[Rfam]
RNA sequence: AUUUCUUUGGGCGAUGGGGUCCGCCCUAAUUGCCAAAAGGCUGAUGACUCCUAUCUCUAU
Numbered sequence: 001a002u003u004u005c006u007u008u009g010g011g012c013g014a015u016g017g018g019g020u021c022c023g024c025c026c027u028a029a030u031u032g033c034c035a036a037a038a039g040g041c042u043g044a045u046g047a048c049u050c051c052u053a054u055c056u057c058u059a060u
Stems, first nucleotide, its partner, number of pairs: 010025004016051006032041003